Background: Rfam assigns this 156-nucleotide RNA from Populus alba to the family "MIR2912 microRNA precursor family". Rfam 15.1 lists 15,051 matches to the family in 15 species. Gene Ontology terms of the family: RISC complex and miRNA-mediated post-transcriptional gene silencing. Pairs were carried over by alignment from the consensus structure, which was predicted with RNAalifold. It scores 78 bits against the family's covariance model.

[Rfam]
RNA sequence: UUUAGAACUCCAGAUAUAGGCCAAACACUAACAGUGUUCGGGCUGUGGGACAGAUUCAGACUUCUUCAUUGUUGCUAUAAUUUGGACUUGAAAACGGCCUUGUUAGAUCCUGGCCUCUACAUGAAAGUUGUAGGCCUAUGUCUUACCAAAUCUGUG
Number, nucleotide and partner (000 for none) at each position: 001u000002u000003u154004a153005g152006a151007a000008c000009u145010c000011c000012a143013g142014a141015u140016a139017u138018a137019g136020g135021c133022c000023a131024a000025a129026c000027a128028c127029u126030a000031a000032c000033a000034g122035u121036g120037u000038u000039c000040g118041g117042g116043c000044u000045g000046u000047g111048g110049g109050a108051c000052a000053g104054a103055u102056u000057c000058a000059g098060a000061c097062u096063u000064c000065u000066u000067c000068a000069u000070u000071g087072u086073u085074g000075c000076u000077a000078u000079a000080a000081u000082u000083u000084g000085g073086a072087c071088u000089u000090g000091a000092a000093a000094a000095c000096g062097g061098c059099c000100u000101u000102g055103u054104u053105a000106g000107a000108u050109c049110c048111u047112g000113g000114c000115c000116u042117c041118u040119a000120c036121a035122u034123g000124a000125a000126a029127g028128u027129u025130g000131u023132a000133g021134g000135c020136c019137u018138a017139u016140g015141u014142c013143u012144u000145a009146c000147c000148a000149a000150a000151u006152c005153u004154g003155u000156g000